[Rfam]
Overview: The family of this 141-nucleotide RNA sequence from Ferrimonas marina is "FMN riboswitch aptamer (RFN element)". A search with the family's covariance model found it, with a score of 114 bits. NCBI's taxonomy places the organism under Bacteria, Pseudomonadota, Alteromonadales, Ferrimonadaceae, Ferrimonas.

RNA sequence: UCGAAUUCUCAGGGCAGGGUGCAAUUCCCUACCGGCGGUGAUCCCUUAGGGGCAGCCCGCGAGCGCCCGGCCUGGCCGGGGACAGCAGAUCCGGUGUGACUCCGGAGCCGACGGUGACAGUCCGGAUGAAAGAGAACGCGG
Numbered sequence: 001u002c003g004a005a006u007u008c009u010c011a012g013g014g015c016a017g018g019g020u021g022c023a024a025u026u027c028c029c030u031a032c033c034g035g036c037g038g039u040g041a042u043c044c045c046u047u048a049g050g051g052g053c054a055g056c057c058c059g060c061g062a063g064c065g066c067c068c069g070g071c072c073u074g075g076c077c078g079g080g081g082a083c084a085g086c087a088g089a090u091c092c093g094g095u096g097u098g099a100c101u102c103c104g105g106a107g108c109c110g111a112c113g114g115u116g117a118c119a120g121u122c123c124g125g126a127u128g129a130a131a132g133a134g135a136a137c138g139c140g141g
Stems, first nucleotide, its partner, number of pairs: 003139001006136005017029003031121002033110002035060004055108002063086002090106005112124003